[Rfam]
RNA sequence: AAUUUUAGGAUACAUACAGUUCAAGAGCAAGCAACGGAUUGAGCCUGUAUGUCUCCUGAUU
Numbered sequence: 001a002a003u004u005u006u007a008g009g010a011u012a013c014a015u016a017c018a019g020u021u022c023a024a025g026a027g028c029a030a031g032c033a034a035c036g037g038a039u040u041g042a043g044c045c046u047g048u049a050u051g052u053c054u055c056c057u058g059a060u061u
Stems, first nucleotide, its partner, number of pairs: 013051005019044006028036001
RNA: Enterovirus cis-acting replication element
Organism: Enterovirus geswini